[Rfam]
RNA sequence: AUCUUAGUGAUGCGUCUCCUCCUCCCAUUGCGCAUCCUAAGUGUUCCCCUCUGAAGGCUUGUCCAUAUGACGCCUUCAAAAUUCCAAGCCGGGCUUAUGUCCGGCUUUUUUU
Numbered sequence: 001a002u003c004u005u006a007g008u009g010a011u012g013c014g015u016c017u018c019c020u021c022c023u024c025c026c027a028u029u030g031c032g033c034a035u036c037c038u039a040a041g042u043g044u045u046c047c048c049c050u051c052u053g054a055a056g057g058c059u060u061g062u063c064c065a066u067a068u069g070a071c072g073c074c075u076u077c078a079a080a081a082u083u084c085c086a087a088g089c090c091g092g093g094c095u096u097a098u099g100u101c102c103g104g105c106u107u108u109u110u111u112u
Stems, first nucleotide, its partner, number of pairs: 001042001003041003007037001012033004052078007086107009
Shown here is a 112-nucleotide RNA sequence from Pseudochrobactrum saccharolyticum, a member of the family "Alphaproteobacterial ar15". It is annotated as a small RNA. Its Rfam clan is "suhB sRNA clan". Rfam 15.1 lists 316 matches to the family in 177 species. Lineage of the source: Bacteria > Alphaproteobacteria > Hyphomicrobiales > Brucellaceae > Pseudochrobactrum. It scores 60 bits against the family's covariance model. The base pairs follow the family's consensus structure.